[Rfam]
RNA sequence: CAGACUGUUGUCAAUGAUGAAACGUAGUUAAGCUGAAGUUAAUGAUUUAACUUGGUUCCUUCGUCACUACCACUGAGACAACAGAUGUG
Dot-bracket structure: ((.(((((((((................................................................)))))))).).))
A member of the RNA family "Small nucleolar RNA SNORD70" from Nyctiprogne leucopyga, 89 nucleotides long. Taxonomically the source falls in Nyctiprogne (Eukaryota, Amniota, Sauropsida, Caprimulgiformes). From the family's description: snoRNA HBII-234 belongs to the C/D family of snoRNAs. It is the human orthologue of the mouse MBII-234 and is predicted to guide 2'O-ribose methylation of the small 18S rRNA on position A512. It is hosted, together with HBII-95, by the core C/D box snoRNA protein encoding gene NOP5/NOP58. It is annotated as a C/D-box small nucleolar RNA.